The family of this 121-nucleotide RNA from Oxobacter pfennigii is "Molybdenum/Tungsten riboswitch aptamer (Moco RNA motif)".
Taxonomically the source falls in Oxobacter (Bacteria, Bacillati, Bacillota, Clostridiaceae).
On this family, see Regulski et al., Mol Microbiol 2008: "in molybdenum cofactor and tungsten cofactor metabolism".
The match comes from Rfam's covariance-model search (70 bits).

RNA sequence: AAAAUUCAAUAGCUCCGAGCUUAUUUUGCCUAAGGUUAUCGUCACUAUGGCUGAUGAGCCGUCAGGGUAUUGUUGGAAACUUCAAUGCCUCCUUUUGGAAAGGAGUAAGAUGAUAUAACCU
Numbered sequence: 001a002a003a004a005u006u007c008a009a010u011a012g013c014u015c016c017g018a019g020c021u022u023a024u025u026u027u028g029c030c031u032a033a034g035g036u037u038a039u040c041g042u043c044a045c046u047a048u049g050g051c052u053g054a055u056g057a058g059c060c061g062u063c064a065g066g067g068u069a070u071u072g073u074u075g076g077a078a079a080c081u082u083c084a085a086u087g088c089c090u091c092c093u094u095u096u097g098g099a100a101a102g103g104a105g106u107a108a109g110a111u112g113a114u115a116u117a118a119c120c121u
Stems, first nucleotide, its partner, number of pairs: 004114001006112001012106005019059007028051003034046003065090008075080001091098002